[Rfam]
RNA sequence: UAUCCCUAUGAAGAAUGUUAUUUAUAUUGAAAGUAGUGGACUGAUAUCCAUUGAUGAGCAAAUGAUUCUGAGGGAUG
Numbered sequence: 001u002a003u004c005c006c007u008a009u010g011a012a013g014a015a016u017g018u019u020a021u022u023u024a025u026a027u028u029g030a031a032a033g034u035a036g037u038g039g040a041c042u043g044a045u046a047u048c049c050a051u052u053g054a055u056g057a058g059c060a061a062a063u064g065a066u067u068c069u070g071a072g073g074g075a076u077g
Base pairs, nucleotide, nucleotide: 001077002076003075004074005073006072
Dot-bracket structure: ((((((.................................................................))))))